[Rfam]
The family of this 91-nucleotide sequence from Aurantiacibacter luteus is "Glycine riboswitch aptamer". Pairs were carried over by alignment from the consensus structure. Its family is annotated with glycine biosynthetic process in the Gene Ontology. A search with the family's covariance model found it, with a score of 60 bits.
RNA sequence: GGCAGCAGCGCGGGAGAGCCUGUCCGCAACGGCAGGCACCGAAGGAGCAACCGCCCCGGAAACUCUCAGGUCACCGGACCGCGCGACUGGA
Numbered sequence: 001g002g003c004a005g006c007a008g009c010g011c012g013g014g015a016g017a018g019c020c021u022g023u024c025c026g027c028a029a030c031g032g033c034a035g036g037c038a039c040c041g042a043a044g045g046a047g048c049a050a051c052c053g054c055c056c057c058g059g060a061a062a063c064u065c066u067c068a069g070g071u072c073a074c075c076g077g078a079c080c081g082c083g084c085g086a087c088u089g090g091a
Stems, first nucleotide, its partner, number of pairs: 008084006019036004038071003041067002045065003051059002